[Rfam]
RNA sequence: AGCCACACAUUUGAGGCCAAAGCAGAAGUGUUCCCGGUGUAGUCUGUUGGAUUUCAACAAAUCUGUGAAUUCUGCU
Dot-bracket structure: ..............[[[...((((((((((.......))).]]]...(((((((....)))))))....)))))))
Rfam assigns this 76-nucleotide RNA sequence from Alligator mississippiensis to the family "Mammalian CPEB3 ribozyme".
Lineage of the source: Eukaryota > Eumetazoa > Bilateria > Craniata > Alligator.
Pairs were carried over by alignment from the consensus structure, which is taken from published work.
Rfam 15.1 lists 5,706 matches to the family in 197 species.